[Rfam]
The record is a 139-nucleotide RNA from Miscanthus lutarioriparius, which matches "Small nucleolar RNA Z247" in Rfam. The base pairs follow the family's consensus structure, which was predicted with PFOLD. The family has 8 seed sequences and 7,071 matches in Rfam 15.1. Lineage of the source: Eukaryota > Spermatophyta > Poaceae > Andropogoneae > Miscanthus.
RNA sequence: ACGCUCAAAGAUGAGGAACUUGUGUCCUACAUCUUGACUGGUUGGGACCUUGAUUUCAACCCGGUGGUGUUGGAAGUGGCGGCGCGCAUUGAACCCAUUUCUGUUGGUGAUCUGUACACAUAGCUCGUCAGCUUCGAGC
Numbered sequence: 001a002c003g004c005u006c007a008a009a010g011a012u013g014a015g016g017a018a019c020u021u022g023u024g025u026c027c028u029a030c031a032u033c034u035u036g037a038c039u040g041g042u043u044g045g046g047a048c049c050u051u052g053a054u055u056u057c058a059a060c061c062c063g064g065u066g067g068u069g070u071u072g073g074a075a076g077u078g079g080c081g082g083c084g085c086g087c088a089u090u091g092a093a094c095c096c097a098u099u100u101c102u103g104u105u106g107g108u109g110a111u112c113u114g115u116a117c118a119c120a121u122a123g124c125u126c127g128u129c130a131g132c133u134u135c136g137a138g139c
Base pairs, nucleotide, nucleotide: 004138005137006136008134088108089107090106091105092104
Dot-bracket structure: ...(((.(...............................................................................(((((...........))))).........................).))).